This 96-nucleotide sequence from Macrococcoides caseolyticum belongs to the Rfam family "SAM riboswitch aptamer (S box leader)". The organism belongs to Macrococcoides caseolyticum, within Bacteria. Pairs were carried over by alignment from the consensus structure, which is taken from published work.
RNA sequence: UGCUUAUCCAGAGUGGUGGAGGGACUGGCCCUAUGAAACCCGGCAACCUAUUAAUUUAGGUGCUAAUUCCAGCAGGUAUAUCCUGAAAGAUAAGGU
Numbered sequence: 001u002g003c004u005u006a007u008c009c010a011g012a013g014u015g016g017u018g019g020a021g022g023g024a025c026u027g028g029c030c031c032u033a034u035g036a037a038a039c040c041c042g043g044c045a046a047c048c049u050a051u052u053a054a055u056u057u058a059g060g061u062g063c064u065a066a067u068u069c070c071a072g073c074a075g076g077u078a079u080a081u082c083c084u085g086a087a088a089g090a091u092a093a094g095g096u
Stems, first nucleotide, its partner, number of pairs: 003094006013041001015040003021031003025072004042064004047060002050055001068088001073085004